[Rfam]
RNA: rpsB sRNA
RNA sequence: CACACGUGAGGCAUGGGAUUGUCCGGGAGAAAUCCGGAUCGUUCCGCCGGUGGGCGCAGUAAGAUGCGUUCGACGCCUUGCGGAGGUUCAACCGGAAAAGGAGAAUA
Numbered sequence: 001c002a003c004a005c006g007u008g009a010g011g012c013a014u015g016g017g018a019u020u021g022u023c024c025g026g027g028a029g030a031a032a033u034c035c036g037g038a039u040c041g042u043u044c045c046g047c048c049g050g051u052g053g054g055c056g057c058a059g060u061a062a063g064a065u066g067c068g069u070u071c072g073a074c075g076c077c078u079u080g081c082g083g084a085g086g087u088u089c090a091a092c093c094g095g096a097a098a099a100g101g102a103g104a105a106u107a
Stems, first nucleotide, its partner, number of pairs: 001085001003083001005082007016045002024036002027034001053070005
Dot-bracket structure: (.(.(((((((....((......((.(......))).......)).......(((((........))))).....)))))))).)......................